The family of this 82-nucleotide sequence from Sparus aurata is "mir-194 microRNA precursor family". For this family Rfam cites "Reduced accumulation of specific microRNAs in colorectal neoplasia" (Michael et al., Mol Cancer Res, 2003). The family's consensus secondary structure was predicted with RNAalifold. Gene Ontology terms of the family: miRNA-mediated post-transcriptional gene silencing and RISC complex. The match comes from Rfam's covariance-model search (77 bits).

RNA sequence: AGGCGCUCGCUGGAUGUAACAGCAACUCCAUGUGGAAAGCUGUGUGUGUUCCAGUGGAGGUGCUGUUACCUGCAGAGAGACG
Numbered sequence: 001a002g003g004c005g006c007u008c009g010c011u012g013g014a015u016g017u018a019a020c021a022g023c024a025a026c027u028c029c030a031u032g033u034g035g036a037a038a039g040c041u042g043u044g045u046g047u048g049u050u051c052c053a054g055u056g057g058a059g060g061u062g063c064u065g066u067u068a069c070c071u072g073c074a075g076a077g078a079g080a081c082g
Base pairs, nucleotide, nucleotide: 010075011074012073016069017068018067019066020065021064022063023062026059027058028057029056030055031054033053034052035051